Shown here is a 103-nucleotide RNA from Pseudonocardia oroxyli, a member of the family "Guanidine-I riboswitch aptamer".
The pairing is the family consensus, mapped onto this sequence.
Rfam describes the family as follows. This family represents a conserved RNA structure found upstream of the ykkC and yxkD genes in Bacillus subtilis and related genes in other bacteria. The function of this family is unclear although it has been suggested that it may function to switch on efflux pumps and detoxification systems in response to harmful environmental molecules.
RNA sequence: GUGAGGCGCGUCUAGGGUUCCGCUCGCUCGCGAGGUCUGGUCCGAGAGAUGCAGGCGGCAGGCACGGCGAGCCGCCCCACGGCGGGACAAAAGCCCGGGAGAC
Numbered sequence: 001g002u003g004a005g006g007c008g009c010g011u012c013u014a015g016g017g018u019u020c021c022g023c024u025c026g027c028u029c030g031c032g033a034g035g036u037c038u039g040g041u042c043c044g045a046g047a048g049a050u051g052c053a054g055g056c057g058g059c060a061g062g063c064a065c066g067g068c069g070a071g072c073c074g075c076c077c078c079a080c081g082g083c084g085g086g087a088c089a090a091a092a093g094c095c096c097g098g099g100a101g102a103c
Base pairs, nucleotide, nucleotide: 008052009051010050011049012048015043016042020040021039022037023034024033025032026031054076055075056074057073058072059071078098080101084096085095086094